This 72-nucleotide RNA sequence from Cyclobacterium marinum belongs to the Rfam family "tRNA". It scores 68 bits against the family's covariance model. By type it is a transfer RNA. The family is grouped with related families in Rfam's "tRNA clan". Rfam links the family to the GO term triplet codon-amino acid adaptor activity.
Nucleotides: 072
Stems, first nucleotide, its partner, number of pairs: 001071007010025004027043005048064005
Number, partner (000 for none) and nucleotide at each position: 001071a002070g003069c004068c005067u006066c007065g008000u009000a010025g011024u012023u013022c014000a015000a016000u017000g018000g019000a020000u021000a022013g023012a024011a025010u026000a027043g028042a029041a030040g031039u032000u033000u034000c035000c036000u037000a038000a039031a040030c041029u042028u043027u044000a045000g046000a047000u048064g049063c050062a051061a052060g053000u054000u055000c056000g057000a058000u059000u060052c061051u062050u063049g064048c065007c066006g067005a068004g069003g070002c071001u072000a